[Rfam]
RNA sequence: GGCCGGAUAAGGCGUUUACGCCGCAUCAGGCAUCUGAGCAUGAUGCCUGAUGCGGCGCUGGUCGCGUCUUAUCAGGCC
Numbered sequence: 001g002g003c004c005g006g007a008u009a010a011g012g013c014g015u016u017u018a019c020g021c022c023g024c025a026u027c028a029g030g031c032a033u034c035u036g037a038g039c040a041u042g043a044u045g046c047c048u049g050a051u052g053c054g055g056c057g058c059u060g061g062u063c064g065c066g067u068c069u070u071a072u073c074a075g076g077c078c
Stems, first nucleotide, its partner, number of pairs: 002031003006027003011022004045077008054068005
The family of this 78-nucleotide RNA sequence from Desulfonatronum sp. SC1 is "Nucleoid-associated noncoding RNA 4 (CssrE)". A reference for the family is Qian et al. (2015), "A New Noncoding RNA Arranges Bacterial Chromosome Organization", MBio. Pairs were carried over by alignment from the consensus structure, which is taken from published work. NCBI's taxonomy places the organism under Bacteria, Pseudomonadati, Thermodesulfobacteriota, Desulfovibrionales, Desulfonatronum. It scores 75 bits against the family's covariance model. By type it is a small RNA. Rfam links the family to the GO terms bacterial nucleoid DNA packaging, protein binding and bacterial nucleoid. Rfam describes the family as follows. In E. coli small RNA transcribed from repeated extragenic palindromic element (REP325) called nucleoid-associated ncRNA 4 (nRNA4) collaborates HU protein in condensing the DNA. The secondary structure but not the sequence of the RNA is important in nucleoid condensation.